RNA: mir-8799 microRNA precursor family
RNA sequence: GGGGGGAGGCCGGAUCCUGGGCUGUGUCCCGGUGCCCUGUGCUCCGGGGCCUGCACUGUUGGAAUCGCUCCUGGCCCCGCAUCCCGCU
Numbered sequence: 001g002g003g004g005g006g007a008g009g010c011c012g013g014a015u016c017c018u019g020g021g022c023u024g025u026g027u028c029c030c031g032g033u034g035c036c037c038u039g040u041g042c043u044c045c046g047g048g049g050c051c052u053g054c055a056c057u058g059u060u061g062g063a064a065u066c067g068c069u070c071c072u073g074g075c076c077c078c079g080c081a082u083c084c085c086g087c088u
Stems, first nucleotide, its partner, number of pairs: 001088002004085003009080002012076002016074002019071003024068003027063003030058006039051001041050003